Overview
The family of this 98-nucleotide RNA from Anisodus acutangulus is "Small nucleolar RNA R30/Z108". Rfam links the family to the GO terms nucleolus and RNA processing. The family's RNA type in Rfam is C/D-box small nucleolar RNA. The family is grouped with related families in Rfam's "SNORD100 clan". NCBI's taxonomy places the organism under Eukaryota, Spermatophyta, Magnoliopsida, Solanaceae, Anisodus. The family's consensus secondary structure was predicted with PFOLD.
[Rfam]
RNA sequence: UGAAUUUGCUAUGAGGAGUCCAAGCUCCCUCUUCUGAGUAAUGUUGAGGAAACUUGCUGGCAGAAUCGAACCAAUAAUCACUAGCUACCACUGAGCAA
Numbered sequence: 001u002g003a004a005u006u007u008g009c010u011a012u013g014a015g016g017a018g019u020c021c022a023a024g025c026u027c028c029c030u031c032u033u034c035u036g037a038g039u040a041a042u043g044u045u046g047a048g049g050a051a052a053c054u055u056g057c058u059g060g061c062a063g064a065a066u067c068g069a070a071c072c073a074a075u076a077a078u079c080a081c082u083a084g085c086u087a088c089c090a091c092u093g094a095g096c097a098a
Base pairs, nucleotide, nucleotide: 006098007097008096009095